[Rfam]
This 89-nucleotide sequence from Callithrix jacchus belongs to the Rfam family "Small nucleolar RNA SNORD116". Taxonomically the source falls in Callithrix (Eukaryota, Gnathostomata, Teleostomi, Boreoeutheria). It scores 77 bits against the family's covariance model. For this family Rfam cites "Identification of brain-specific and imprinted small nucleolar RNA genes exhibiting an unusual genomic organization" (Cavaille et al., Proc Natl Acad Sci U S A, 2000). Rfam classes the family as a C/D-box small nucleolar RNA. The family has 48 seed sequences and 3,260 matches in Rfam 15.1.
RNA sequence: GGAUUGAUGAUGAGUCUCCCCAAAAAAACAUUCCUUGGAAAAGCUGAACAAAAUGAGUGAAAACUCAUACUGUCGCUCUCAUGAGGUCC
Number, nucleotide and partner (000 for none) at each position: 001g089002g088003a087004u086005u085006g000007a000008u000009g000010a000011u000012g000013a000014g000015u000016c000017u000018c000019c000020c000021c000022a000023a000024a000025a000026a000027a000028a000029c059030a058031u057032u056033c055034c000035u051036u050037g049038g000039a000040a000041a000042a000043g000044c000045u000046g000047a000048a000049c037050a036051a035052a000053a000054u000055g033056a032057g031058u030059g029060a000061a000062a000063a000064c000065u000066c000067a000068u000069a000070c000071u000072g000073u000074c000075g000076c000077u000078c000079u000080c000081a000082u000083g000084a000085g005086g004087u003088c002089c001